[Rfam]
RNA sequence: GCCCAGAGGACCCUUAGUGGUCUGGGGUGCAGGCUUCAAACCUGUAGCUGUCUAGCAACCAAGUGGUUCAUUUUCACCUUUUGGGU
Dot-bracket structure: (((((((((..((((((....))))))((((((.......))))))...((......))...((((.......)))))))))))))
Numbered sequence: 001g002c003c004c005a006g007a008g009g010a011c012c013c014u015u016a017g018u019g020g021u022c023u024g025g026g027g028u029g030c031a032g033g034c035u036u037c038a039a040a041c042c043u044g045u046a047g048c049u050g051u052c053u054a055g056c057a058a059c060c061a062a063g064u065g066g067u068u069c070a071u072u073u074u075c076a077c078c079u080u081u082u083g084g085g086u
Stems, first nucleotide, its partner, number of pairs: 001086009012027006028046006050059002063077004
Rfam assigns this 86-nucleotide RNA sequence from Himantopus himantopus to the family "Selenocysteine transfer RNA".
The family's consensus secondary structure is taken from published work.